[Rfam]
The family of this 83-nucleotide sequence from Burkholderia cenocepacia is "SucA RNA motif". Rfam's curators put it in the seed alignment. The organism belongs to Burkholderia cenocepacia, within Bacteria. Rfam classes the family as a cis-regulatory element. The literature on the family includes a 2007 paper in Nucleic Acids Res by Weinberg et al., "Identification of 22 candidate structured RNAs in bacteria using the CMfinder comparative genomics pipeline".
RNA sequence: UCGCAAUCCGCUAAACGGUCAGGCCGUGUCGCGGAAGGUUGAGUAACCCGCUAUUUCUCGAGAAGCUCGAAGAAAGGUGAGCG
Numbered sequence: 001u002c003g004c005a006a007u008c009c010g011c012u013a014a015a016c017g018g019u020c021a022g023g024c025c026g027u028g029u030c031g032c033g034g035a036a037g038g039u040u041g042a043g044u045a046a047c048c049c050g051c052u053a054u055u056u057c058u059c060g061a062g063a064a065g066c067u068c069g070a071a072g073a074a075a076g077g078u079g080a081g082c083g
Stems, first nucleotide, its partner, number of pairs: 002083003007035005016026004037048004049079004056073003059069004
Dot-bracket structure: .(((..(((((....((((...))))....))))).((((....))))((((...(((((((...)))).)))..)))).)))